[Rfam]
RNA: Small nucleolar RNA Z161/Z228
RNA sequence: GGGCCAUGUGAUGAGAAUCCAUAUGCAAUACUCACGACGGUCGUCUGAUACACUUAGUGUGUCAUGUUGCAGUCAUAUUAUUCUCUGAUGCCC
Numbered sequence: 001g002g003g004c005c006a007u008g009u010g011a012u013g014a015g016a017a018u019c020c021a022u023a024u025g026c027a028a029u030a031c032u033c034a035c036g037a038c039g040g041u042c043g044u045c046u047g048a049u050a051c052a053c054u055u056a057g058u059g060u061g062u063c064a065u066g067u068u069g070c071a072g073u074c075a076u077a078u079u080a081u082u083c084u085c086u087g088a089u090g091c092c093c
Stems, first nucleotide, its partner, number of pairs: 001093004051059003